[Rfam]
RNA sequence: AUGGUAGAGAUCCAGCAGCGAGGUAUAGAGUUCCUACGUGAAUUUAAGGUAGUAGGAACUUCAUACCGUGCUCUUGGACUUGCCGAA
Number, nucleotide and partner (000 for none) at each position: 001a000002u000003g000004g000005u000006a000007g000008a000009g000010a000011u000012c077013c076014a075015g000016c000017a072018g071019c070020g069021a000022g067023g066024u065025a064026u063027a000028g061029a060030g059031u058032u057033c056034c055035u054036a053037c052038g000039u000040g000041a000042a000043u000044u000045u000046a000047a000048g000049g000050u000051a000052g037053u036054a035055g034056g033057a032058a031059c030060u029061u028062c000063a026064u025065a024066c023067c022068g000069u020070g019071c018072u017073c000074u000075u014076g013077g012078a000079c000080u000081u000082g000083c000084c000085g000086a000087a000
Shown here is an 87-nucleotide sequence from Trichogramma brassicae, a member of the family "mir-276 microRNA precursor family". Lineage of the source: Eukaryota > Bilateria > Dicondylia > Neoptera > Trichogramma. Pairs were carried over by alignment from the consensus structure, which was predicted with RNAalifold.